Source information: The record is an 84-nucleotide RNA sequence from Microbacterium esteraromaticum, which matches "ZMP/ZTP riboswitch aptamer (pfl RNA motif)" in Rfam.
RNA sequence: UUUCAACGUCGCGACUGGCGUCUGGGUGGGUCACCACCGGGGAGCGGCCUCAUAUGGAAUCGACCGCGCGCCUGGGCCGAUGAG
Numbered sequence: 001u002u003u004c005a006a007c008g009u010c011g012c013g014a015c016u017g018g019c020g021u022c023u024g025g026g027u028g029g030g031u032c033a034c035c036a037c038c039g040g041g042g043a044g045c046g047g048c049c050u051c052a053u054a055u056g057g058a059a060u061c062g063a064c065c066g067c068g069c070g071c072c073u074g075g076g077c078c079g080a081u082g083a084g
Stems, first nucleotide, its partner, number of pairs: 006050001008048005015041002017072005026037004061079002064076002